[Rfam]
RNA: mir-3064 microRNA precursor family
Nucleotides: 069
Stems, first nucleotide, its partner, number of pairs: 002066002006062002009060012021047005030040003
Number, partner (000 for none) and nucleotide at each position: 001000g002066g003065u004000c005000u006062g007061g008000c009060u010059g011058u012057u013056g014055u015054g016053g017052u018051g019050u020049g021047c022046a023045a024044a025043a026000u027000c028000u029000c030040g031039u032038g033000c034000c035000c036000c037000c038032c039031g040030c041000c042000u043025u044024u045023u046022u047021g048000c049020c050019a051018c052017a053016c054015u055014g056013c057012a058011a059010c060009a061007c062006u063000u064000u065003a066002c067000a068000g069000a